[Rfam]
RNA sequence: GGUUUCCAUUGGCCAAAAUCCAAUCAUUUUCGAUUUGAAAUAAGAAGUAAUUCUCCAUUGGUAGCAAAAAGUUAUCCAUUAAGCGGAAGAAAUAGCAUU
Numbered sequence: 001g002g003u004u005u006c007c008a009u010u011g012g013c014c015a016a017a018a019u020c021c022a023a024u025c026a027u028u029u030u031c032g033a034u035u036u037g038a039a040a041u042a043a044g045a046a047g048u049a050a051u052u053c054u055c056c057a058u059u060g061g062u063a064g065c066a067a068a069a070a071g072u073u074a075u076c077c078a079u080u081a082a083g084c085g086g087a088a089g090a091a092a093u094a095g096c097a098u099u
Stems, first nucleotide, its partner, number of pairs: 009023004054087003057079002060076006

The family of this 99-nucleotide sequence from Carex neurocarpa is "Plastid-rps12 3UTR RNA". From the family's description: Plastid rpl20 is a non-coding RNA (ncRNA) recognised in plastids. It was found in the three prime untranslated region (3UTR) of rps12 gene, its 3UTR location sugest a role in transcript maduration. A reference for the family is Richter et al. (2023), "Retrograde signaling in plants: A critical review focusing on the GUN pathway and beyond", Plant Commun. Rfam's curators put it in the seed alignment. The family has 1,299 seed sequences and 1,710 matches in Rfam 15.1.